[Rfam]
RNA sequence: UGAUGGCUGUUCCUCCUGUUGCCUAUAGGCAUGGCACUAGGAUUUUAAGUCAUCAUAAAUUAAAAUUGACUUUUUUCACUCAGAGAAUAUCAAGAUAUUGGGUUUAUCUAUGUGUUCUCUGAAAUUUGCGGGGUCAAACAUUA
Numbered sequence: 001u002g003a004u005g006g007c008u009g010u011u012c013c014u015c016c017u018g019u020u021g022c023c024u025a026u027a028g029g030c031a032u033g034g035c036a037c038u039a040g041g042a043u044u045u046u047a048a049g050u051c052a053u054c055a056u057a058a059a060u061u062a063a064a065a066u067u068g069a070c071u072u073u074u075u076u077c078a079c080u081c082a083g084a085g086a087a088u089a090u091c092a093a094g095a096u097a098u099u100g101g102g103u104u105u106a107u108c109u110a111u112g113u114g115u116u117c118u119c120u121g122a123a124a125u126u127u128g129c130g131g132g133g134u135c136a137a138a139c140a141u142u143a
Stems, first nucleotide, its partner, number of pairs: 001055008014042005020036004068135006080122010093109005
RNA: Small nucleolar RNA SNORA79